[Rfam]
Shown here is a 134-nucleotide RNA sequence from Jaculus jaculus, a member of the family "Small nucleolar RNA SNORA48". By type it is an H/ACA-box small nucleolar RNA. A search with the family's covariance model found it, with a score of 56 bits. On this family, see Ofengand and Bakin, J Mol Biol 1997: "Mapping to nucleotide resolution of pseudouridine residues in large subunit ribosomal RNAs from representative eukaryotes, prokaryotes, archaebacteria, mitochondria and chloroplasts". The source organism's lineage runs through Eukaryota, Deuterostomia, Tetrapoda, Eutheria and Jaculus. About the family: The snoRNA ACA 48 has been identified to guide pseudouridylation of the residue U3797 in the 28S rRNA subunit.

RNA sequence: UGCUCCUGGCAAUGGGCAAAGAAAUACCUCAUGGAUGGUGGUGUUUUUAUAUCAGUCAGGGGCAGAACAGAUGGAGGUCCUUUGUUCAUCCUAGCCUGACGUGACCAAAGCUGUUUCAUGCCCAGGGCACAAUC
Numbered sequence: 001u002g003c004u005c006c007u008g009g010c011a012a013u014g015g016g017c018a019a020a021g022a023a024a025u026a027c028c029u030c031a032u033g034g035a036u037g038g039u040g041g042u043g044u045u046u047u048u049a050u051a052u053c054a055g056u057c058a059g060g061g062g063c064a065g066a067a068c069a070g071a072u073g074g075a076g077g078u079c080c081u082u083u084g085u086u087c088a089u090c091c092u093a094g095c096c097u098g099a100c101g102u103g104a105c106c107a108a109a110g111c112u113g114u115u116u117c118a119u120g121c122c123c124a125g126g127g128c129a130c131a132a133u134c
Base pairs, nucleotide, nucleotide: 001064002063003062004061005060006059007058008057013054014053015052019048020047021046023042025040026039027038028037083129084128085127086126087125098122100120102118103117104116